[Rfam]
Nucleotides: 038
Stems, first nucleotide, its partner, number of pairs: 001035004012030007
Number, partner (000 for none) and nucleotide at each position: 001035c002034c003033g004032u005000u006000u007000a008000a009000c010000u011000c012030g013029c014028u015027c016026c017025u018024g019000c020000g021000c022000g023000a024018c025017a026016g027015g028014g029013g030012c031000u032004a033003c034002g035001g036000g037000a038000g